[Rfam]
RNA sequence: AUGUGAGGUAGAGGUCGCGAAAAUUAUUAGUAGUUGGUUGGAGGUUGUAGAAAGUCUGAGAAGAUCAAGGAAAGGAAUUUUUGCCGAAAUGAUAGUUCAUUCUACGGAGUUAUCAUUGGGUUUAUACUUAAUAAGUAUAAAACUGUCAUAGUGAUUGCUAUGUUGAGCUACUAAUAUU
Numbered sequence: 001a002u003g004u005g006a007g008g009u010a011g012a013g014g015u016c017g018c019g020a021a022a023a024u025u026a027u028u029a030g031u032a033g034u035u036g037g038u039u040g041g042a043g044g045u046u047g048u049a050g051a052a053a054g055u056c057u058g059a060g061a062a063g064a065u066c067a068a069g070g071a072a073a074g075g076a077a078u079u080u081u082u083g084c085c086g087a088a089a090u091g092a093u094a095g096u097u098c099a100u101u102c103u104a105c106g107g108a109g110u111u112a113u114c115a116u117u118g119g120g121u122u123u124a125u126a127c128u129u130a131a132u133a134a135g136u137a138u139a140a141a142a143c144u145g146u147c148a149u150a151g152u153g154a155u156u157g158c159u160a161u162g163u164u165g166a167g168c169u170a171c172u173a174a175u176a177u178u
Stems, first nucleotide, its partner, number of pairs: 007172005017084009034068006088117011118144002121141008147162006
RNA: Lysine riboswitch aptamer
Organism: Gemella sp. GL1.1